[Rfam]
The record is a 196-nucleotide RNA from Bacillus aquiflavi, which matches "Group II catalytic intron D1-D4-5" in Rfam.
It scores 53 bits against the family's covariance model.
Pairs were carried over by alignment from the consensus structure.
Rfam 15.1 lists 720 matches to the family in 418 species.
About the family: Group II introns are found in rRNA, tRNA and mRNA of organelles in fungi, plants and protists, and also in mRNA in bacteria.

RNA sequence: UUCAGCUAAAGCCACGUUUCUCUAAUUAGAGGGAACGCUGUGAAAGGGGCUCCCCCUGCGUCGAAUAGCACUCUAUUUAGUAAGAAAUAGCGUGCUAUAAGCUUCCGCUAAUAAGUGCGAGAAUUUACCUUAACAGUUUGGCUGACGAAACCCUACCUGAUGGGGCGGUGUAAAUUAUGGGGCUUGGGUUGAAUAA
Numbered sequence: 001u002u003c004a005g006c007u008a009a010a011g012c013c014a015c016g017u018u019u020c021u022c023u024a025a026u027u028a029g030a031g032g033g034a035a036c037g038c039u040g041u042g043a044a045a046g047g048g049g050c051u052c053c054c055c056c057u058g059c060g061u062c063g064a065a066u067a068g069c070a071c072u073c074u075a076u077u078u079a080g081u082a083a084g085a086a087a088u089a090g091c092g093u094g095c096u097a098u099a100a101g102c103u104u105c106c107g108c109u110a111a112u113a114a115g116u117g118c119g120a121g122a123a124u125u126u127a128c129c130u131u132a133a134c135a136g137u138u139u140g141g142c143u144g145a146c147g148a149a150a151c152c153c154u155a156c157c158u159g160a161u162g163g164g165g166c167g168g169u170g171u172a173a174a175u176u177a178u179g180g181g182g183c184u185u186g187g188g189u190u191g192a193a194u195a196a
Stems, first nucleotide, its partner, number of pairs: 019049004030041001031039002052188003061107001063105002065098007073090006114184003118180001123175006129147001131145001135143002152168002156165003
Background
A reference for the family is Bonen and Vogel (2001), "The ins and outs of group II introns", Trends Genet. Gene Ontology term of the family: Group II intron splicing.